This 164-nucleotide RNA sequence from Streptomyces sp. SAJ15 belongs to the Rfam family "c-di-AMP riboswitch aptamer (ydaO/yuaA leader)". It scores 52 bits against the family's covariance model. Taxonomically the source falls in Streptomyces (Bacteria, Bacillati, Actinomycetota, Kitasatosporales). Gene Ontology terms of the family: cyclic-di-AMP binding and regulation of gene expression.

RNA sequence: CCCGGAUCCACGCUCGGAAACCACGAGUUCGGCAGGAGCGGGAGACCCAAGCACGACGGGCCACGAAACCGGUGGCCCUUGGGGUGAAGCCACGUAUGUGGCCGGGCAACUUCGCCAGCCCGAACCCGACAGGUCAUCUUUCGUAGGCGGAUGACGAAGGGCUC
Numbered sequence: 001c002c003c004g005g006a007u008c009c010a011c012g013c014u015c016g017g018a019a020a021c022c023a024c025g026a027g028u029u030c031g032g033c034a035g036g037a038g039c040g041g042g043a044g045a046c047c048c049a050a051g052c053a054c055g056a057c058g059g060g061c062c063a064c065g066a067a068a069c070c071g072g073u074g075g076c077c078c079u080u081g082g083g084g085u086g087a088a089g090c091c092a093c094g095u096a097u098g099u100g101g102c103c104g105g106g107c108a109a110c111u112u113c114g115c116c117a118g119c120c121c122g123a124a125c126c127c128g129a130c131a132g133g134u135c136a137u138c139u140u141u142c143g144u145a146g147g148c149g150g151a152u153g154a155c156g157a158a159g160g161g162c163u164c
Stems, first nucleotide, its partner, number of pairs: 002147002007037003038144004042138002048081004082127003090101004104121004